[Rfam]
RNA sequence: GGGAGAGAGUUGGGCAGCUGGUGCGCCCCGCGGUCUUCAAAACCGUUGUGUGGGGUUAGGAGCUUCACGGGUGGGUUCGAUUCCCACCAUCUCCG
Numbered sequence: 001g002g003g004a005g006a007g008a009g010u011u012g013g014g015c016a017g018c019u020g021g022u023g024c025g026c027c028c029c030g031c032g033g034u035c036u037u038c039a040a041a042a043c044c045g046u047u048g049u050g051u052g053g054g055g056u057u058a059g060g061a062g063c064u065u066c067a068c069g070g071g072u073g074g075g076u077u078c079g080a081u082u083c084c085c086a087c088c089a090u091c092u093c094c095g
Stems, first nucleotide, its partner, number of pairs: 002094005009087001012028004017024002030046005049069005072086004